[Rfam]
RNA sequence: GUUCCAUUCCAGGGAGCCACCGUAGAAGCCUUCGCUUUGUGGCCCCUGUUGGAUUCCUAGGAAUUCGUGAAUUUUUCU
Numbered sequence: 001g002u003u004c005c006a007u008u009c010c011a012g013g014g015a016g017c018c019a020c021c022g023u024a025g026a027a028g029c030c031u032u033c034g035c036u037u038u039g040u041g042g043c044c045c046c047u048g049u050u051g052g053a054u055u056c057c058u059a060g061g062a063a064u065u066c067g068u069g070a071a072u073u074u075u076u077c078u
Stems, first nucleotide, its partner, number of pairs: 013046002016043003022077001024075004028040002050067007
RNA: Mammalian CPEB3 ribozyme